[Rfam]
RNA sequence: GAAGGGGCUGAGUGGUAGGUGGUGCUGCUGUGCUCUGAUGAAGACCCAUGUGGCUAGCAACAGCGCUUACCUUUUGUCUCUGG
Numbered sequence: 001g002a003a004g005g006g007g008c009u010g011a012g013u014g015g016u017a018g019g020u021g022g023u024g025c026u027g028c029u030g031u032g033c034u035c036u037g038a039u040g041a042a043g044a045c046c047c048a049u050g051u052g053g054c055u056a057g058c059a060a061c062a063g064c065g066c067u068u069a070c071c072u073u074u075u076g077u078c079u080c081u082g083g
Stems, first nucleotide, its partner, number of pairs: 003081006010074003014071008023062002026059005032054003038049003

Source information: A member of the RNA family "mir-621 microRNA precursor family" from Pan troglodytes, 83 nucleotides long. On this family, see Baev et al., Comput Biol Chem 2009: "Computational identification of novel microRNA homologs in the chimpanzee genome". Its family is annotated with miRNA-mediated post-transcriptional gene silencing and RISC complex in the Gene Ontology. The family has 3 seed sequences and 24 matches in Rfam 15.1. It is one of the family's seed sequences.